Rfam assigns this 75-nucleotide RNA from Chlorobium sp. to the family "Chlorobi-RRM RNA". It scores 58 bits against the family's covariance model.
[Rfam]
Nucleotides: 075
Stems, first nucleotide, its partner, number of pairs: 004024004009019004027063003031059010
Number, partner (000 for none) and nucleotide at each position: 001000a002000u003000g004024u005023u006022a007021g008000g009019c010018c011017a012016g013000u014000a015000g016012u017011u018010g019009g020000c021007c022006u023005g024004a025000u026000a027063g028062c029061u030000c031059u032058c033057a034056a035055g036054u037053g038052a039051u040050u041000u042000g043000u044000g045000c046000u047000u048000u049000u050040g051039a052038u053037u054036a055035u056034u057033u058032g059031g060000a061029a062028g063027u064000c065000u066000u067000u068000c069000u070000c071000u072000c073000u074000u075000u